[Rfam]
RNA: Ribosomal protein L20 leader
Organism: Bacillus sp. MUM 116
RNA sequence: UAGGAAAAGAAGAAGCACCCGCUUCUCACCUGAUUGACGCUGGUUAAAGCAGUUGGCAGGUUUUACGUGAACUUUUUUGUUUCAUUACUUUUGUUUCGUAAAGUGUGGGUGAUUUCAUCCGCACUUUUUUGUUUGA
Numbered sequence: 001u002a003g004g005a006a007a008a009g010a011a012g013a014a015g016c017a018c019c020c021g022c023u024u025c026u027c028a029c030c031u032g033a034u035u036g037a038c039g040c041u042g043g044u045u046a047a048a049g050c051a052g053u054u055g056g057c058a059g060g061u062u063u064u065a066c067g068u069g070a071a072c073u074u075u076u077u078u079g080u081u082u083c084a085u086u087a088c089u090u091u092u093g094u095u096u097c098g099u100a101a102a103g104u105g106u107g108g109g110u111g112a113u114u115u116c117a118u119c120c121g122c123a124c125u126u127u128u129u130u131g132u133u134u135g136a
Stems, first nucleotide, its partner, number of pairs: 011026006028061003036054003039050002104123008